[Rfam]
RNA: Bacillaceae-1 RNA
Organism: Paenisporosarcina sp. HGH0030
RNA sequence: GUUUUUGGAACUCAGGUUAAGAACGCCACAUCCUGCUCCUGCGAUUACUCGUCGCAAAAUUCCUGCUCCUGCGAUUACUCGUCGCAAAAUUCCUUUUGUGGCAACGGCUGCAUAACCUGCUUCGUGCAGG
Numbered sequence: 001g002u003u004u005u006u007g008g009a010a011c012u013c014a015g016g017u018u019a020a021g022a023a024c025g026c027c028a029c030a031u032c033c034u035g036c037u038c039c040u041g042c043g044a045u046u047a048c049u050c051g052u053c054g055c056a057a058a059a060u061u062c063c064u065g066c067u068c069c070u071g072c073g074a075u076u077a078c079u080c081g082u083c084g085c086a087a088a089a090u091u092c093c094u095u096u097u098g099u100g101g102c103a104a105c106g107g108c109u110g111c112a113u114a115a116c117c118u119g120c121u122u123c124g125u126g127c128a129g130g
Stems, first nucleotide, its partner, number of pairs: 013110003017106001025102005116130005